Shown here is a 61-nucleotide RNA from Mastacembelus armatus, a member of the family "mir-728 microRNA precursor family".
The match comes from Rfam's covariance-model search (72 bits).
The source organism's lineage runs through Eukaryota, Teleostei, Eurypterygia, Mastacembeloidei and Mastacembelus.
Rfam links the family to the GO terms miRNA-mediated post-transcriptional gene silencing and RISC complex.
[Rfam]
RNA sequence: AAAUGUAGUAGACUACAAGUAUACAUGUACUCAGAAAGUAUACUAAGUAUACUACGUUUAC
Number, nucleotide and partner (000 for none) at each position: 001a059002a058003a057004u056005g055006u054007a053008g052009u051010a000011g000012a048013c047014u046015a000016c000017a000018a044019g043020u042021a041022u040023a039024c038025a000026u000027g000028u000029a000030c000031u000032c000033a000034g000035a000036a000037a000038g024039u023040a022041u021042a020043c019044u018045a000046a014047g013048u012049a000050u000051a009052c008053u007054a006055c005056g004057u003058u002059u001060a000061c000